[Rfam]
RNA sequence: UUUUACGGGCGGGAGAGCGGCGUGGGGUGAGGGUUGGUUGUGCUGUGUGCUGUGUGGCGGUGUCGCGUGGAAGGCGCGUGCGAGCCGAGUGUGAGUGAACGUGUGAGUGUGUGAGCGCGCGUGAGGCGUGCAAGGUGAGUGCGUGCACCCCCCCCCGCUUCCCUCCCCCCGCCUACACAUUGAUCUUAUUUGAUCGGGUUGUGACCCCAGCCCCGCCGGGCUGACCCGAAAUGAAAAGCUCUCCUCCUGCGAAGCCCCCUCCUCGGGGCGCUGUGCAGCGAGGCCCGUUGGGCGGCGGCAACGCCGCGGUCCCGGAAGUCCCGGAGCUGGUCCUACGGGGCGCGGCGCUCAGAGGUGAUGAAUUGAUCAGAUAGACGAGGCCGGGCUUGUCCUGGGCCGCUGAUUAUCGAGGCGAUUCUGAUCUGA
Numbered sequence: 001u002u003u004u005a006c007g008g009g010c011g012g013g014a015g016a017g018c019g020g021c022g023u024g025g026g027g028u029g030a031g032g033g034u035u036g037g038u039u040g041u042g043c044u045g046u047g048u049g050c051u052g053u054g055u056g057g058c059g060g061u062g063u064c065g066c067g068u069g070g071a072a073g074g075c076g077c078g079u080g081c082g083a084g085c086c087g088a089g090u091g092u093g094a095g096u097g098a099a100c101g102u103g104u105g106a107g108u109g110u111g112u113g114a115g116c117g118c119g120c121g122u123g124a125g126g127c128g129u130g131c132a133a134g135g136u137g138a139g140u141g142c143g144u145g146c147a148c149c150c151c152c153c154c155c156c157g158c159u160u161c162c163c164u165c166c167c168c169c170c171g172c173c174u175a176c177a178c179a180u181u182g183a184u185c186u187u188a189u190u191u192g193a194u195c196g197g198g199u200u201g202u203g204a205c206c207c208c209a210g211c212c213c214c215g216c217c218g219g220g221c222u223g224a225c226c227c228g229a230a231a232u233g234a235a236a237a238g239c240u241c242u243c244c245u246c247c248u249g250c251g252a253a254g255c256c257c258c259c260u261c262c263u264c265g266g267g268g269c270g271c272u273g274u275g276c277a278g279c280g281a282g283g284c285c286c287g288u289u290g291g292g293c294g295g296c297g298g299c300a301a302c303g304c305c306g307c308g309g310u311c312c313c314g315g316a317a318g319u320c321c322c323g324g325a326g327c328u329g330g331u332c333c334u335a336c337g338g339g340g341c342g343c344g345g346c347g348c349u350c351a352g353a354g355g356u357g358a359u360g361a362a363u364u365g366a367u368c369a370g371a372u373a374g375a376c377g378a379g380g381c382c383g384g385g386c387u388u389g390u391c392c393u394g395g396g397c398c399g400c401u402g403a404u405u406a407u408c409g410a411g412g413c414g415a416u417u418c419u420g421a422u423c424u425g426a
Stems, first nucleotide, its partner, number of pairs: 059161002062158002064080006097108001111148003116143005122137002189237003194229004199224003203221001206220003210216002261318001263316002266313003270310003275307002278304003283299003286295001326346004331340003350425004360418006379398004384393002